[Rfam]
RNA: epsC RNA
RNA sequence: UGGUGAUGCCUCCUCCACCACUAUCAAUGGAGACACUCGGUCAUGCUGUGGGUUGAAAAACACCUUAGACACGGAUACGUUGUCGGUAGUGUGGUGUGAGGAGGGGUUAGAUGCCCU
Numbered sequence: 001u002g003g004u005g006a007u008g009c010c011u012c013c014u015c016c017a018c019c020a021c022u023a024u025c026a027a028u029g030g031a032g033a034c035a036c037u038c039g040g041u042c043a044u045g046c047u048g049u050g051g052g053u054u055g056a057a058a059a060a061c062a063c064c065u066u067a068g069a070c071a072c073g074g075a076u077a078c079g080u081u082g083u084c085g086g087u088a089g090u091g092u093g094g095u096g097u098g099a100g101g102a103g104g105g106g107u108u109a110g111a112u113g114c115c116c117u
Stems, first nucleotide, its partner, number of pairs: 001020004007035002010032004036100004040095008050065004068084004103117005